[Rfam]
RNA sequence: CAAACAGACAGCAAAAUGUUGGAUUAUCAAGCAGGUUUUGAGACUAUGCAGACCCUUCUCUUACCUAUUCUGGCAGGGGUCAAAAUGAUCCAAGAAGGCAAUGGUACGCUG
Numbered sequence: 001c002a003a004a005c006a007g008a009c010a011g012c013a014a015a016a017u018g019u020u021g022g023a024u025u026a027u028c029a030a031g032c033a034g035g036u037u038u039u040g041a042g043a044c045u046a047u048g049c050a051g052a053c054c055c056u057u058c059u060c061u062u063a064c065c066u067a068u069u070c071u072g073g074c075a076g077g078g079g080u081c082a083a084a085a086u087g088a089u090c091c092a093a094g095a096a097g098g099c100a101a102u103g104g105u106a107c108g109c110u111g
Stems, first nucleotide, its partner, number of pairs: 033062003077109001079107002